[Rfam]
RNA: A. fumigatus sRNA Afu_309
RNA sequence: UCUCUUUAAGCAAACACGGAUCUGUGCCUAGCGAUCCUCUGCUCUCCGGAGUCAGGGUUGAUUGCUUUGCAGCUCGAUAACUUAUAAGGAGCCAUCAACUUGUUAUGGUGUCAAUUUUCCUAUCGACAGGUCCAAGAGUAACAGCUCUUCAGCCGCUUCAUUCGCUGCUCUUCGGGGCAGCUUGAGUGAAGGGGUUGUUGCAGCGAGACGCUAUAUUCCACCCCCCUUUUCCGAGGCCGUCGGCUGGUGAGGUUGGGGAAAACCAUGGCCUACCUACAUAU
Numbered sequence: 001u002c003u004c005u006u007u008a009a010g011c012a013a014a015c016a017c018g019g020a021u022c023u024g025u026g027c028c029u030a031g032c033g034a035u036c037c038u039c040u041g042c043u044c045u046c047c048g049g050a051g052u053c054a055g056g057g058u059u060g061a062u063u064g065c066u067u068u069g070c071a072g073c074u075c076g077a078u079a080a081c082u083u084a085u086a087a088g089g090a091g092c093c094a095u096c097a098a099c100u101u102g103u104u105a106u107g108g109u110g111u112c113a114a115u116u117u118u119c120c121u122a123u124c125g126a127c128a129g130g131u132c133c134a135a136g137a138g139u140a141a142c143a144g145c146u147c148u149u150c151a152g153c154c155g156c157u158u159c160a161u162u163c164g165c166u167g168c169u170c171u172u173c174g175g176g177g178c179a180g181c182u183u184g185a186g187u188g189a190a191g192g193g194g195u196u197g198u199u200g201c202a203g204c205g206a207g208a209c210g211c212u213a214u215a216u217u218c219c220a221c222c223c224c225c226c227u228u229u230u231c232c233g234a235g236g237c238c239g240u241c242g243g244c245u246g247g248u249g250a251g252g253u254u255g256g257g258g259a260a261a262a263c264c265a266u267g268g269c270c271u272a273c274c275u276a277c278a279u280a281u
Stems, first nucleotide, its partner, number of pairs: 018133008026070002030066002033063004037057005042051003078125001080123001083122002088112002091109003146200001150197005157186004164181007207274001210269005223258004231252002235245004